raiA RNA: a 210-nucleotide RNA. By type it is a riboswitch. The family's consensus secondary structure is taken from published work.
RNA sequence: UUUUCAUGUGUCCGUGGUUGAAAGUCGAUGCCAGUCGCAGGCGAAACGAUCCACGUAAGCCGGGAAAAUUCCGGUGAGCAUGGUGCGGCUUAGAGGUAAGUCCUGCCAGCGCCUCGGCGCUGAGAGGGUCAGUAGUGGGGAGGCAGAGGCCUUAUGAGCGAACGCUCCGGCAGGCGAGUGUGGGGUCAAAGACCAGGUCGGGCAUGAAAA
Numbered sequence: 001u002u003u004u005c006a007u008g009u010g011u012c013c014g015u016g017g018u019u020g021a022a023a024g025u026c027g028a029u030g031c032c033a034g035u036c037g038c039a040g041g042c043g044a045a046a047c048g049a050u051c052c053a054c055g056u057a058a059g060c061c062g063g064g065a066a067a068a069u070u071c072c073g074g075u076g077a078g079c080a081u082g083g084u085g086c087g088g089c090u091u092a093g094a095g096g097u098a099a100g101u102c103c104u105g106c107c108a109g110c111g112c113c114u115c116g117g118c119g120c121u122g123a124g125a126g127g128g129u130c131a132g133u134a135g136u137g138g139g140g141a142g143g144c145a146g147a148g149g150c151c152u153u154a155u156g157a158g159c160g161a162a163c164g165c166u167c168c169g170g171c172a173g174g175c176g177a178g179u180g181u182g183g184g185g186u187c188a189a190a191g192a193c194c195a196g197g198u199c200g201g202g203c204a205u206g207a208a209a210a
Base pairs, nucleotide, nucleotide: 001210002209003208004207005206006205007204008203009202012201013200014199015195016194017193018192019191028181029180030179031041033090034089035088036087037086038085039084050083051082058075060073062071063070064069081188102174103173104172105171106170107122108121109120110119111118126167127166128165129164135159136158141152142151143150